ZMP/ZTP riboswitch aptamer (pfl RNA motif): an 82-nucleotide RNA sequence. The family's consensus secondary structure is taken from published work. The sequence is in the family's curated seed alignment.
RNA sequence: GUUAAGUUAUACGACUGACGGAAGUGGAAUAAACCACAGGGAGUAUAAUCGUGUAAAAGAGUCGACCGUCUGGGCUAAGAAU
Number, nucleotide and partner (000 for none) at each position: 001g000002u000003u000004a000005a000006g049007u048008u047009a046010u045011a044012c043013g000014a000015c040016u039017g070018a069019c068020g067021g066022a000023a000024g037025u036026g035027g034028a000029a000030u000031a000032a000033a000034c027035c026036a025037c024038a000039g016040g015041g000042a000043g012044u011045a010046u009047a008048a007049u006050c000051g000052u000053g000054u000055a000056a000057a000058a000059g000060a076061g075062u074063c073064g000065a000066c021067c020068g019069u018070c017071u000072g000073g063074g062075c061076u060077a000078a000079g000080a000081a000082u000